[Rfam]
RNA sequence: CCCCCGGAUAGAGGCGCGGAGUUGCAUGAGUAGUCCAUGAGAUGAUUUCCGAUCUGAUCGUUUGCAUCAUCGGUGAAAGGGCCCUCCGCCGAAGGAAGUUUAAAUCGGAGUAAACUUGCCUGGUCGCCGCGCUGAACAAGCCUGUGACUGUCAUCAUUGUAUUAUGAUGAAGAGCUAUCGACUGG
Number, nucleotide and partner (000 for none) at each position: 001c000002c000003c000004c000005c000006g000007g179008a178009u177010a176011g175012a000013g000014g000015c000016g089017c088018g087019g086020a085021g084022u000023u000024g082025c081026a000027u000028g000029a000030g000031u000032a000033g074034u073035c072036c000037a070038u069039g068040a067041g000042a000043u000044g000045a000046u000047u000048u000049c000050c000051g000052a000053u000054c000055u000056g000057a000058u000059c000060g000061u000062u000063u000064g000065c000066a000067u040068c039069a038070u037071c000072g035073g034074u033075g000076a000077a000078a000079g000080g000081g025082c024083c000084c021085u020086c019087c018088g017089c016090c000091g000092a000093a121094g120095g119096a117097a116098g115099u114100u113101u112102a111103a000104a000105u000106c000107g000108g000109a000110g000111u102112a101113a100114a099115c098116u097117u096118g000119c095120c094121u093122g149123g148124u147125c146126g145127c144128c000129g142130c000131g141132c140133u139134g000135a000136a000137c000138a000139a133140g132141c131142c129143u000144g127145u126146g125147a124148c123149u122150g000151u170152c169153a168154u167155c166156a165157u164158u000159g000160u000161a000162u000163u000164a157165u156166g155167a154168u153169g152170a151171a000172g000173a000174g000175c011176u010177a009178u008179c007180g000181a000182c000183u000184g000185g000
RNA: Lysine riboswitch aptamer
Organism: Ligaoa zhengdingensis